[Rfam]
RNA sequence: AAUAAUACCAUCUCCGAGCUGGUAUACCUAAGGGUGUAGGGCGCCUAUGGUAUGCCGGCCUGGGUUUUCACCAACCCACGGGGUAGGCCGGGAAACGGGCCUGCCUCCCCAAGCUCGGAAAGGAGAUGCAUGAUAUAAGGG
Numbered sequence: 001a002a003u004a005a006u007a008c009c010a011u012c013u014c015c016g017a018g019c020u021g022g023u024a025u026a027c028c029u030a031a032g033g034g035u036g037u038a039g040g041g042c043g044c045c046u047a048u049g050g051u052a053u054g055c056c057g058g059c060c061u062g063g064g065u066u067u068u069c070a071c072c073a074a075c076c077c078a079c080g081g082g083g084u085a086g087g088c089c090g091g092g093a094a095a096c097g098g099g100c101c102u103g104c105c106u107c108c109c110c111a112a113g114c115u116c117g118g119a120a121a122g123g124a125g126a127u128g129c130a131u132g133a134u135a136u137a138a139g140g141g
Base pairs, nucleotide, nucleotide: 003135004134006132010127011126012125013124014123015122018059019058020057021056022055023054024053025052026051027050028049032046033045034044035043061078062077063076064075065074081106082105083104084103085102086101087100088099089098091096107118108117
Record summary:
Molybdenum/Tungsten riboswitch aptamer (Moco RNA motif): a 141-nucleotide sequence from Neomoorella humiferrea. The family's consensus secondary structure is taken from published work. It scores 84 bits against the family's covariance model.